[Rfam]
RNA sequence: ACGAUGUUCCGCUGCGAUCAAUUAGAAUUGUAAGAGCAUCUG
Numbered sequence: 001a002c003g004a005u006g007u008u009c010c011g012c013u014g015c016g017a018u019c020a021a022u023u024a025g026a027a028u029u030g031u032a033a034g035a036g037c038a039u040c041u042g
Base pairs, nucleotide, nucleotide: 003040004039005038006037007036008035009034013032014031015030016029017028018027
Notes
The record is a 42-nucleotide RNA from Bacillus oleivorans, which matches "Ribosomal protein L19 leader" in Rfam. From the family's description: This family is a putative r-protein leader autoregulatory structure found in B. subtilis and other low-GC Gram-positive bacteria. It is located in the 5' untranslated regions of mRNAs encoding ribosomal protein L19 (rplS). It scores 42 bits against the family's covariance model. The literature on the family includes a 1994 paper in Prog Nucleic Acid Res Mol Biol by Zengel and Lindahl, "Diverse mechanisms for regulating ribosomal protein synthesis in Escherichia coli".